Notes
A member of the RNA family "TPP riboswitch aptamer (THI element)" from Breoghania corrubedonensis, 101 nucleotides long.
RNA sequence: UUCAUCCAAUGGGGGUGCCCGACAAGGGCUGAGAGGCUUUACGCCAACCCCUCGAACCUGAACCGGAUCAUGCCGGCGGAGGGAAUUGGAAUGAAAAGAAC
Numbered sequence: 001u002u003c004a005u006c007c008a009a010u011g012g013g014g015g016u017g018c019c020c021g022a023c024a025a026g027g028g029c030u031g032a033g034a035g036g037c038u039u040u041a042c043g044c045c046a047a048c049c050c051c052u053c054g055a056a057c058c059u060g061a062a063c064c065g066g067a068u069c070a071u072g073c074c075g076g077c078g079g080a081g082g083g084a085a086u087u088g089g090a091a092u093g094a095a096a097a098g099a100a101c
Stems, first nucleotide, its partner, number of pairs: 006089005011051004017029004037043001057082003063076004